[Rfam]
RNA sequence: GAGUGUUAUGAUGAUGGAAUCAAUCGAUUCUUAGUCUAGCUCUGGUCUACCGCUGAGAAUUAUUCUCAGCGG
Numbered sequence: 001g002a003g004u005g006u007u008a009u010g011a012u013g014a015u016g017g018a019a020u021c022a023a024u025c026g027a028u029u030c031u032u033a034g035u036c037u038a039g040c041u042c043u044g045g046u047c048u049a050c051c052g053c054u055g056a057g058a059a060u061u062a063u064u065c066u067c068a069g070c071g072g
Stems, first nucleotide, its partner, number of pairs: 001042004010036003016031006050072009
This 72-nucleotide RNA sequence from Streptococcus agalactiae belongs to the Rfam family "L17 ribosomal protein downstream element". The family's consensus secondary structure is taken from published work. Rfam classes the family as a cis-regulatory element. The organism belongs to Streptococcus agalactiae, within Bacteria.